A member of the RNA family "Small nucleolar RNA SNORA48" from Nannospalax galili, 144 nucleotides long. The family's RNA type in Rfam is H/ACA-box small nucleolar RNA. Gene Ontology terms of the family: nucleolus and RNA processing. Lineage of the source: Eukaryota > Eumetazoa > Chordata > Spalacinae > Nannospalax. The family is grouped with related families in Rfam's "SNORA48 clan". About the family: The snoRNA ACA 48 has been identified to guide pseudouridylation of the residue U3797 in the 28S rRNA subunit.
Nucleotides: 144
Base pairs, nucleotide, nucleotide: 003062004061005060006059007058008057013054014053015052019048020047021046023042025040026039027038028037083139084138085137086136087135098132100130104128105127106126109123110122112120
Number, partner (000 for none) and nucleotide at each position: 001000a002000c003062c004061c005060c006059c007058u008057g009000g010000c011000a012000g013054u014053g015052g016000g017000c018000a019048a020047a021046g022000a023042g024000a025040c026039a027038c028037c029000u030000u031000g032000u033000u034000g035000g036000u037028g038027g039026u040025g041000g042023u043000g044000u045000u046021c047020u048019u049000a050000a051000a052015u053014c054013a055000g056000u057008c058007g059006g060005g061004g062003g063000c064000a065000g066000a067000g068000c069000a070000g071000a072000u073000g074000g075000u076000a077000g078000u079000c080000c081000u082000u083139u084138g085137u086136u087135c088000a089000u090000c091000c092000u093000a094000g095000c096000u097000u098132g099000a100130u101000g102000c103000c104128u105127g106126g107000c108000u109123c110122a111000c112120u113000g114000g115000c116000c117000a118000a119000a120112g121000c122110u123109g124000u125000u126106u127105c128104a129000c130100g131000c132098c133000u134000a135087g136086g137085g138084c139083a140000c141000a142000a143000u144000c